[Rfam]
RNA sequence: CUUUGGCACUCUUCACUCGGACCGUCCGGCACGUUCCUGCCGGUGAAGGGACCAUUUG
Numbered sequence: 001c002u003u004u005g006g007c008a009c010u011c012u013u014c015a016c017u018c019g020g021a022c023c024g025u026c027c028g029g030c031a032c033g034u035u036c037c038u039g040c041c042g043g044u045g046a047a048g049g050g051a052c053c054a055u056u057u058g
Stems, first nucleotide, its partner, number of pairs: 009050007026043006
Rfam assigns this 58-nucleotide RNA sequence from Peptidiphaga gingivicola to the family "msiK RNA".
By type it is a cis-regulatory element.
Pairs were carried over by alignment from the consensus structure, which is taken from published work.